[Rfam]
RNA sequence: UACGUCUCACGUAACUGGCGAAAAGCGGAUGCGGCGCGCUGGGCGCGACAUCGGCGAAAGGUGGACAUCCACCGGGGAACGUGAGAAUUUCAACAGCCGUUCGCCUGGGCAGCCUAU
Numbered sequence: 001u002a003c004g005u006c007u008c009a010c011g012u013a014a015c016u017g018g019c020g021a022a023a024a025g026c027g028g029a030u031g032c033g034g035c036g037c038g039c040u041g042g043g044c045g046c047g048a049c050a051u052c053g054g055c056g057a058a059a060g061g062u063g064g065a066c067a068u069c070c071a072c073c074g075g076g077g078a079a080c081g082u083g084a085g086a087a088u089u090u091c092a093a094c095a096g097c098c099g100u101u102c103g104c105c106u107g108g109g110c111a112g113c114c115u116a117u
Stems, first nucleotide, its partner, number of pairs: 005086008015076002017105005061072004094112001096110003
The record is a 117-nucleotide RNA from Massilia sp. NR 4-1, which matches "ZMP/ZTP riboswitch aptamer (pfl RNA motif)" in Rfam. The organism belongs to Massilia, within Bacteria. The family has 185 seed sequences and 3,295 matches in Rfam 15.1.